[Rfam]
The record is a 77-nucleotide RNA sequence from Paraburkholderia phytofirmans, which matches "Burkholderia sRNA 54" in Rfam. The source organism's lineage runs through Bacteria, Pseudomonadati, Burkholderiales, Burkholderiaceae and Paraburkholderia phytofirmans. For this family Rfam cites "Identification of small RNAs abundant in Burkholderia cenocepacia biofilms reveal putative regulators with a potential role in carbon and iron metabolism" (Sass et al., Sci Rep, 2017).

RNA sequence: GCAUCUCUCAGGUUCUGACACGGCCCUCGGAAUGGUCAGAAUUUUUUAACCAACCCCUACGCGGUCGGCUUUUUUUU
Numbered sequence: 001g002c003a004u005c006u007c008u009c010a011g012g013u014u015c016u017g018a019c020a021c022g023g024c025c026c027u028c029g030g031a032a033u034g035g036u037c038a039g040a041a042u043u044u045u046u047u048a049a050c051c052a053a054c055c056c057c058u059a060c061g062c063g064g065u066c067g068g069c070u071u072u073u074u075u076u077u
Stems, first nucleotide, its partner, number of pairs: 010044010024030002048070001050068002053065003057061001
About the family: Identified by RNA-seq, RACE and Northern blot. Strongly expressed in biofilm.